Shown here is an 88-nucleotide sequence from Vagococcus penaei, a member of the family "BsrC". About the family: The 301 nucleotide sequence from Kouji Nakamura has been trimmed to a highly conserved ~85 nucleotide long core to form this family.

[Rfam]
RNA sequence: UCUCGUUCAAACAGUGCAAACCCAACCUCUUAAGCACCUUCUGUAGUUCCUUAACUACGCCAAAAAGAAUAAACUUCUUAAAAUAAAC
Numbered sequence: 001u002c003u004c005g006u007u008c009a010a011a012c013a014g015u016g017c018a019a020a021c022c023c024a025a026c027c028u029c030u031u032a033a034g035c036a037c038c039u040u041c042u043g044u045a046g047u048u049c050c051u052u053a054a055c056u057a058c059g060c061c062a063a064a065a066a067g068a069a070u071a072a073a074c075u076u077c078u079u080a081a082a083a084u085a086a087a088c
Base pairs, nucleotide, nucleotide: 035067039063040062042059043058044057045056046055047054048053